[Rfam]
RNA sequence: UGACCACUUCCUUUAAGGAAGUUAAGGCCAUACGGACAGCCGGGUCAAAUGCCGA
Numbered sequence: 001u002g003a004c005c006a007c008u009u010c011c012u013u014u015a016a017g018g019a020a021g022u023u024a025a026g027g028c029c030a031u032a033c034g035g036a037c038a039g040c041c042g043g044g045u046c047a048a049a050u051g052c053c054g055a
Stems, first nucleotide, its partner, number of pairs: 001047005006022006
Shown here is a 55-nucleotide sequence from Halalkalibacterium ligniniphilum, a member of the family "Streptococcus sRNA SpF59 (ldcC RNA)". The sequence is in the family's curated seed alignment. The organism belongs to Halalkalibacterium (ex Joshi et al. 2022), within Bacteria. By type it is a small RNA. A reference for the family is Mann et al. (2012), "Control of virulence by small RNAs in Streptococcus pneumoniae", PLoS Pathog.